[Rfam]
RNA sequence: AUACAGCUCCGGCAAAACCAGCGAAAGCUGGUGGCGCAAAGCUAGAGGGCCUAAGCUUACAAAGAGUAUGGCAGCCAGUUGCACAA
Numbered sequence: 001a002u003a004c005a006g007c008u009c010c011g012g013c014a015a016a017a018c019c020a021g022c023g024a025a026a027g028c029u030g031g032u033g034g035c036g037c038a039a040a041g042c043u044a045g046a047g048g049g050c051c052u053a054a055g056c057u058u059a060c061a062a063a064g065a066g067u068a069u070g071g072c073a074g075c076c077a078g079u080u081g082c083a084c085a086a
Stems, first nucleotide, its partner, number of pairs: 012037002017032006040080004047076002049072003056066003
RNA: c-di-GMP-I riboswitch aptamer